RNA sequence: CCGCCAUGCGAUUGCGAAUCUGAAGGAAACUGGAGGCAAACCUCUGGUCUGACGAACAGAAAUCAUAUCAGGCUGUAAAUGAGGAUAAGACUGCCAGACAAGUCAAAGCCCAAUAACUACACGGAAUCAUUUGCAGUAAAUAUGGCGGACAUAAGAGGGAAAGAAUGUGUG
Numbered sequence: 001c002c003g004c005c006a007u008g009c010g011a012u013u014g015c016g017a018a019u020c021u022g023a024a025g026g027a028a029a030c031u032g033g034a035g036g037c038a039a040a041c042c043u044c045u046g047g048u049c050u051g052a053c054g055a056a057c058a059g060a061a062a063u064c065a066u067a068u069c070a071g072g073c074u075g076u077a078a079a080u081g082a083g084g085a086u087a088a089g090a091c092u093g094c095c096a097g098a099c100a101a102g103u104c105a106a107a108g109c110c111c112a113a114u115a116a117c118u119a120c121a122c123g124g125a126a127u128c129a130u131u132u133g134c135a136g137u138a139a140a141u142a143u144g145g146c147g148g149a150c151a152u153a154a155g156a157g158g159g160a161a162a163g164a165a166u167g168u169g170u171g
Base pairs, nucleotide, nucleotide: 002016003015004014006012031169032168037163041158042157043156044155045154047150048149049148050147051146063145064144065143066142067141072137073136074135076133077132078131079130080129081128082127083111084110086108089104090103091102092101
Rfam assigns this 171-nucleotide RNA sequence from Lachnospiraceae bacterium M18-1 to the family "Group II catalytic intron D1-D4-3". On this family, see Lehmann and Schmidt, Crit Rev Biochem Mol Biol 2003: "Group II introns: structure and catalytic versatility of large natural ribozymes". The base pairs follow the family's consensus structure. A search with the family's covariance model found it, with a score of 122 bits. Rfam describes the family as follows. Group II introns are found in rRNA, tRNA and mRNA of organelles in fungi, plants and protists, and also in mRNA in bacteria.